The record is a 74-nucleotide RNA from Clytia hemisphaerica, which matches "tRNA" in Rfam. Transfer RNA (tRNA) molecules are approximately 80 nucleotides in length. The source organism's lineage runs through Eukaryota, Opisthokonta, Obeliida, Clytiidae and Clytia. Rfam classes the family as a transfer RNA.
[Rfam]
RNA sequence: GACUGGAUAGCUCAGUCGGUAGAGCAGUUGCACUAGUAAUGCGAAAUUCGUGAGUUCGAAUCUCACUUCAAUCC
Number, nucleotide and partner (000 for none) at each position: 001g073002a072003c000004u070005g069006g068007a067008u000009a000010g025011c024012u023013c022014a000015g000016u000017c000018g000019g000020u000021a000022g013023a012024g011025c010026a000027g000028u044029u043030g042031c041032a040033c000034u000035a000036g000037u000038a000039a000040u032041g031042c030043g029044a028045a000046a000047u000048u000049c000050g066051u065052g064053a063054g062055u000056u000057c000058g000059a000060a000061u000062c054063u053064c052065a051066c050067u007068u006069c005070a004071a000072u002073c001074c000